[Rfam]
Nucleotides: 107
Stems, first nucleotide, its partner, number of pairs: 007094004011058004017032005039052005063088004069082004
Number, partner (000 for none) and nucleotide at each position: 001000a002000a003000u004000c005000a006000a007094g008093a009092c010091u011058a012057g013056g014055g015000g016000u017032g018031c019030c020029c021028a022000u023000u024000u025000a026000a027000a028021u029020g030019g031018g032017c033000u034000g035000a036000g037000a038000a039052a040051a041050a042049g043048g044000a045000g046000a047000g048043c049042c050041u051040u052039u053000u054000a055014c056013c057012c058011u059000u060000g061000u062000a063088c064087c065086u066085g067000a068000u069082c070081u071080g072079g073000a074000u075000a076000a077000c078000g079072c080071c081070a082069g083000c084000g085066u086065a087064g088063g089000g090000a091010a092009g093008u094007c095000g096000c097000c098000u099000u100000a101000g102000u103000a104000g105000c106000c107000g